The family of this 68-nucleotide RNA sequence from Vombatus ursinus is "mir-33 microRNA precursor family". The source organism's lineage runs through Eukaryota, Gnathostomata, Amniota, Diprotodontia and Vombatus. The match comes from Rfam's covariance-model search (73 bits). The base pairs follow the family's consensus structure, which was predicted with PFOLD. For this family Rfam cites "Direct sequencing and expression analysis of a large number of miRNAs in Aedes aegypti and a multi-species survey of novel mosquito miRNAs" (Li et al., BMC Genomics, 2009). The family has 73 seed sequences and 1,467 matches in Rfam 15.1.
RNA sequence: CUGUGGUGCAUUGUGGUUGCAUUGCACGUCGUGUCGGGGCCGUGCAAUGUUCCCACAGUGCAUCCCAG
Numbered sequence: 001c002u003g004u005g006g007u008g009c010a011u012u013g014u015g016g017u018u019g020c021a022u023u024g025c026a027c028g029u030c031g032u033g034u035c036g037g038g039g040c041c042g043u044g045c046a047a048u049g050u051u052c053c054c055a056c057a058g059u060g061c062a063u064c065c066c067a068g
Stems, first nucleotide, its partner, number of pairs: 001068003006064001007062010019050001021048007